[Rfam]
RNA: nhaA-II RNA
Organism: Caulobacter henricii
RNA sequence: AUCAGGUCGCUGCAGGCGGCCAGGCCGCGCCCCUGGCGAAUUCGGUCCGGCGUCCGUCGAUAACCGGGCGCCACG
Number, nucleotide and partner (000 for none) at each position: 001a000002u000003c000004a000005g021006g020007u019008c018009g017010c016011u000012g000013c000014a000015g000016g010017c009018g008019g007020c006021c005022a000023g047024g046025c045026c044027g043028c038029g037030c036031c035032c000033c000034u000035g031036g030037c029038g028039a000040a000041u000042u000043c027044g026045g025046u024047c023048c000049g072050g071051c070052g069053u068054c067055c000056g000057u000058c000059g000060a000061u000062a000063a000064c000065c000066g000067g054068g053069c052070g051071c050072c049073a000074c000075g000